Nucleotides: 074
Base pairs, nucleotide, nucleotide: 001073002072003071004070005069006068007067010026011025012024013023028044029043030042031041032040050066051065052064053063054062
Number, partner (000 for none) and nucleotide at each position: 001073g002072u003071g004070g005069a006068c007067g008000u009000a010026g011025c012024u013023c014000a015000g016000c017000u018000g019000g020000u021000u022000a023013g024012a025011g026010c027000g028044c029043a030042g031041g032040a033000u034000u035000g036000u037000g038000g039000c040032u041031c042030c043029u044028g045000a046000g047000g048000u049000c050066g051065g052064g053063g054062g055000u056000u057000c058000g059000a060000a061000u062054c063053c064052c065051c066050u067007c068006g069005u070004u071003c072002a073001c074000c

This 74-nucleotide sequence from Candidatus Hakubella thermalkaliphila belongs to the Rfam family "tRNA". NCBI's taxonomy places the organism under Bacteria, Actinomycetota, Candidatus Hakubellales, Candidatus Hakubellaceae, Candidatus Hakubella.